[Rfam]
RNA sequence: AGAAAAGUAGGUGCUGCCCCGCACAGGGGCAACGCAAAUAGACCGCUAAGAAAACAAGGAAAGGCCAACAAACCAACAAACCAACAAACCAGCGCUACGCGAAACCCCC
Number, nucleotide and partner (000 for none) at each position: 001a000002g000003a000004a000005a000006a000007g000008u000009a000010g000011g073012u072013g000014c000015u031016g030017c029018c028019c027020c026021g000022c000023a000024c000025a000026g020027g019028g018029g017030c016031a015032a000033c000034g000035c000036a000037a000038a000039u000040a000041g000042a000043c000044c000045g000046c000047u000048a000049a000050g000051a000052a000053a000054a000055c000056a000057a000058g066059g065060a000061a000062a000063g000064g000065c059066c058067a000068a000069c000070a000071a000072a012073c011074c000075a000076a000077c000078a000079a000080a000081c000082c000083a000084a000085c000086a000087a000088a000089c000090c000091a000092g000093c101094g100095c099096u000097a000098c000099g095100c094101g093102a000103a000104a000105c000106c000107c000108c000109c000
Rfam assigns this 109-nucleotide RNA sequence from Paraburkholderia sp. DHOC27 to the family "Burkholderia sRNA Bp1_Cand684_SIPHT". Rfam 15.1 lists 176 matches to the family in 44 species. Pairs were carried over by alignment from the consensus structure, which was predicted with RNAalifold. A reference for the family is Khoo et al. (2012), "Computational discovery and RT-PCR validation of novel Burkholderia conserved and Burkholderia pseudomallei unique sRNAs", BMC Genomics. It is annotated as a small RNA.